The family of this 62-nucleotide RNA sequence from Cyanobacterium stanieri is "Plastid-psbN 5UTR RNA". Plastid psbN is a non-coding RNA (ncRNA) recognised in plastids.

RNA sequence: UGAAAACACCCAUUAGAGGGGUGGUACUCCAACCGGGGGCUACUUUCCCGUAUUCGGAGUUA
Numbered sequence: 001u002g003a004a005a006a007c008a009c010c011c012a013u014u015a016g017a018g019g020g021g022u023g024g025u026a027c028u029c030c031a032a033c034c035g036g037g038g039g040c041u042a043c044u045u046u047c048c049c050g051u052a053u054u055c056g057g058a059g060u061u062a
Base pairs, nucleotide, nucleotide: 018046019045020044021043022042023041024040025039027037028036